[Rfam]
Shown here is a 102-nucleotide sequence from Paenibacillus uliginis, a member of the family "Purine riboswitch aptamer".
The match comes from Rfam's covariance-model search (84 bits).
RNA sequence: UUCAGUAAAUUAAAUAUUUCUCGUAUAAAGCUGGGGAUAUGGCCCGGAAGUUUCUACCCGAAAACCGUAAAUUUUCGGACUACGAGGGAAUACGGCGGUGCU
Numbered sequence: 001u002u003c004a005g006u007a008a009a010u011u012a013a014a015u016a017u018u019u020c021u022c023g024u025a026u027a028a029a030g031c032u033g034g035g036g037a038u039a040u041g042g043c044c045c046g047g048a049a050g051u052u053u054c055u056a057c058c059c060g061a062a063a064a065c066c067g068u069a070a071a072u073u074u075u076c077g078g079a080c081u082a083c084g085a086g087g088g089a090a091u092a093c094g095g096c097g098g099u100g101c102u
Base pairs, nucleotide, nucleotide: 018088019087020086021085022084023083024082025081031047032046033045034044035043058078059077060076061075062074063073064072